This 115-nucleotide RNA sequence from Planomicrobium sp. YIM 101495 belongs to the Rfam family "SAM riboswitch aptamer (S box leader)".

RNA sequence: CUCUUAUCGAGAGUAGUGGAGGGACUGGCCCGAUGAAGCUCGGCAACCGUUUAUGCAUGCGUGCAUGGAAAAGGUGCUAAAUCCAGCAGGACAAAUGUGUUCUGGAAGAUGAGAG
Number, nucleotide and partner (000 for none) at each position: 001c115002u114003c113004u112005u111006a110007u109008c108009g000010a000011g000012a000013g041014u000015a040016g039017u038018g000019g000020a000021g031022g030023g029024a000025c086026u085027g084028g083029c023030c022031c021032g000033a000034u000035g000036a000037a000038g017039c016040u015041c013042g078043g077044c076045a075046a000047c074048c073049g000050u069051u068052u067053a066054u065055g064056c000057a000058u000059g000060c000061g000062u000063g000064c055065a054066u053067g052068g051069a050070a000071a000072a000073g048074g047075u045076g044077c043078u042079a000080a000081a000082u107083c028084c027085a026086g025087c104088a103089g102090g101091a100092c099093a000094a000095a000096u000097g000098u000099g092100u091101u090102c089103u088104g087105g000106a000107a082108g008109a007110u006111g005112a004113g003114a002115g001
It scores 87 bits against the family's covariance model. From the family's description: The SAM riboswitch is found upstream of a number of genes which code for proteins involved in methionine or cysteine biosynthesis in Gram-positive bacteria.